[Rfam]
RNA: U2 spliceosomal RNA
RNA sequence: GACCCUUUUUUGUAACAUUCACUUCAAUAAAGUAUUUUAUAUCUGUUCUUAUCAGUUUAAUAUCUGAUAUAUCCUCUAUCUGAGGAUUAUAUAUUAAAUGGAUUUUUGGAAUAGGGAGAUGGAAUAGGAGCUUGCUUCAUCCACUCCACACAUCAACCUGGUAUUGCAGUAUCUCCAGGAAUGGUGCAUCUCCC
Numbered sequence: 001g002a003c004c005c006u007u008u009u010u011u012g013u014a015a016c017a018u019u020c021a022c023u024u025c026a027a028u029a030a031a032g033u034a035u036u037u038u039a040u041a042u043c044u045g046u047u048c049u050u051a052u053c054a055g056u057u058u059a060a061u062a063u064c065u066g067a068u069a070u071a072u073c074c075u076c077u078a079u080c081u082g083a084g085g086a087u088u089a090u091a092u093a094u095u096a097a098a099u100g101g102a103u104u105u106u107u108g109g110a111a112u113a114g115g116g117a118g119a120u121g122g123a124a125u126a127g128g129a130g131c132u133u134g135c136u137u138c139a140u141c142c143a144c145u146c147c148a149c150a151c152a153u154c155a156a157c158c159u160g161g162u163a164u165u166g167c168a169g170u171a172u173c174u175c176c177a178g179g180a181a182u183g184g185u186g187c188a189u190c191u192c193c194c
Stems, first nucleotide, its partner, number of pairs: 007027002012022002050069006071087006115147004121141002127138004151186005157179005